Flavo-1 RNA: an 86-nucleotide RNA sequence.
RNA sequence: UCAAUGCCCGCGUGCGUGAUUGAAGUGAAAAUCCUUUGUAACGCUUCAUAGCGGGAGAAAGAUUGAAACGGAAAGCGCGGUAUCAC
Numbered sequence: 001u002c003a004a005u006g007c008c009c010g011c012g013u014g015c016g017u018g019a020u021u022g023a024a025g026u027g028a029a030a031a032u033c034c035u036u037u038g039u040a041a042c043g044c045u046u047c048a049u050a051g052c053g054g055g056a057g058a059a060a061g062a063u064u065g066a067a068a069c070g071g072a073a074a075g076c077g078c079g080g081u082a083u084c085a086c
Stems, first nucleotide, its partner, number of pairs: 016078003020074002025069002030064004036059002039056001042053003
The match comes from Rfam's covariance-model search (45 bits).